[Rfam]
RNA: GA-cis RNA
Organism: Eubacterium sp. CAG:156
RNA sequence: UAUAGGAGAAAAAAAUGAACGAAGUUCAUUUUUUCCUAUAAAUGUUUCCGACGAAUAGCCACUGACCGAAGGGAGGGGGCAAUACAUAUU
Numbered sequence: 001u002a003u004a005g006g007a008g009a010a011a012a013a014a015a016u017g018a019a020c021g022a023a024g025u026u027c028a029u030u031u032u033u034u035c036c037u038a039u040a041a042a043u044g045u046u047u048c049c050g051a052c053g054a055a056u057a058g059c060c061a062c063u064g065a066c067c068g069a070a071g072g073g074a075g076g077g078g079g080c081a082a083u084a085c086a087u088a089u090u
Stems, first nucleotide, its partner, number of pairs: 008049001010047003014030006058080003062076002066072002